Shown here is a 145-nucleotide RNA sequence from Gossypium davidsonii, a member of the family "MIR7502 microRNA precursor family". Pairs were carried over by alignment from the consensus structure, which was predicted with RNAalifold. Lineage of the source: Eukaryota > Embryophyta > rosids > malvids > Gossypium. Rfam 15.1 lists 74,505 matches to the family in 24 species. It scores 91 bits against the family's covariance model.

RNA sequence: UGUUAAAAAUUUCAUCAAUUUGUAAUGUUAAAAGUUGAUUUCUGUACAUCAGCAUGAGGUACACGUGACACGCUACAUGUCACUAUUUGAUUAUUUCAUAAGCCACAUCAGUUUUUAGCAAUACAAAUGAAUAAAAUUUUUAACA
Dot-bracket structure: .(((((((((((.((..(((((((.(.((((((...............................................................................)))))).).)))))))..)).))))))))))).